[Rfam]
RNA sequence: GCUUGAAUGAUGACUUUAUUUCUUUUGUCGGAUACCCCUUCUCUCUACAAUGAGUGAGAACCCUGUUCUGACAACGC
Numbered sequence: 001g002c003u004u005g006a007a008u009g010a011u012g013a014c015u016u017u018a019u020u021u022c023u024u025u026u027g028u029c030g031g032a033u034a035c036c037c038c039u040u041c042u043c044u045c046u047a048c049a050a051u052g053a054g055u056g057a058g059a060a061c062c063c064u065g066u067u068c069u070g071a072c073a074a075c076g077c
Base pairs, nucleotide, nucleotide: 001077002076003074004073005072
Dot-bracket structure: (((((..................................................................))).))
Rfam assigns this 77-nucleotide RNA sequence from Gymnodraco acuticeps to the family "Small nucleolar RNA SNORD101".
Clan: SNORD101 clan.
It scores 54 bits against the family's covariance model.
For this family Rfam cites "Identification of 13 novel human modification guide RNAs" (Vitali et al., Nucleic Acids Res, 2003).